Rfam assigns this 78-nucleotide RNA from Alsobacter metallidurans to the family "chrB-a RNA". The family's consensus secondary structure is taken from published work. Rfam classes the family as a cis-regulatory element. The family has 163 seed sequences and 347 matches in Rfam 15.1. The match comes from Rfam's covariance-model search (75 bits).
RNA sequence: CGCCUGGGGACCGCGAUCUCCCCACGAGGCUCCGGCCGAAGCAUCGCGUCCAGGUCAACAAUCCGGGGACGCGCCAUG
Numbered sequence: 001c002g003c004c005u006g007g008g009g010a011c012c013g014c015g016a017u018c019u020c021c022c023c024a025c026g027a028g029g030c031u032c033c034g035g036c037c038g039a040a041g042c043a044u045c046g047c048g049u050c051c052a053g054g055u056c057a058a059c060a061a062u063c064c065g066g067g068g069a070c071g072c073g074c075c076a077u078g
Base pairs, nucleotide, nucleotide: 005024006023007022008021009020010019046072047071048070049069050068051067